[Rfam]
RNA sequence: CCGUUAAGUGAUUAUGCGGCAGACGGAGUGUCACAUCAUCAUGCCUUGUCACAGACACUUCAUUGUCACGUCAUUGAGGGUGAUAACGUGACAAUGAGGUGUCCAUGGCAAGGGGUGAUGUUGUGACAUUUUGUCUGUCACGUCAUUACUUAACGAAA
Numbered sequence: 001c002c003g004u005u006a007a008g009u010g011a012u013u014a015u016g017c018g019g020c021a022g023a024c025g026g027a028g029u030g031u032c033a034c035a036u037c038a039u040c041a042u043g044c045c046u047u048g049u050c051a052c053a054g055a056c057a058c059u060u061c062a063u064u065g066u067c068a069c070g071u072c073a074u075u076g077a078g079g080g081u082g083a084u085a086a087c088g089u090g091a092c093a094a095u096g097a098g099g100u101g102u103c104c105a106u107g108g109c110a111a112g113g114g115g116u117g118a119u120g121u122u123g124u125g126a127c128a129u130u131u132u133g134u135c136u137g138u139c140a141c142g143u144c145a146u147u148a149c150u151u152a153a154c155g156a157a158a
Stems, first nucleotide, its partner, number of pairs: 002155011014143003018139018037120006044113003048109004054103005070087002073084002
Annotation:
MIR4371 microRNA precursor family: a 158-nucleotide sequence from Glycine max. Clan: MIR4387 microRNA precursor clan.